[Rfam]
The record is an 88-nucleotide sequence from Brochothrix campestris, which matches "BsrC" in Rfam. The family's RNA type in Rfam is small RNA. The 301 nucleotide sequence from Kouji Nakamura has been trimmed to a highly conserved ~85 nucleotide long core to form this family. Pairs were carried over by alignment from the consensus structure, which was predicted with CMfinder.
RNA sequence: UCUAACUUAAGCAACGUAAACCCUGCCAUCUUUUACGUCCUUGUGGCCCUAUAGCCACGCCAGUGUGAAAAAGUAUCUACAAAAACAU
Numbered sequence: 001u002c003u004a005a006c007u008u009a010a011g012c013a014a015c016g017u018a019a020a021c022c023c024u025g026c027c028a029u030c031u032u033u034u035a036c037g038u039c040c041u042u043g044u045g046g047c048c049c050u051a052u053a054g055c056c057a058c059g060c061c062a063g064u065g066u067g068a069a070a071a072a073g074u075a076u077c078u079a080c081a082a083a084a085a086c087a088u
Base pairs, nucleotide, nucleotide: 036067037066040063041062042059043058044057045056046055047054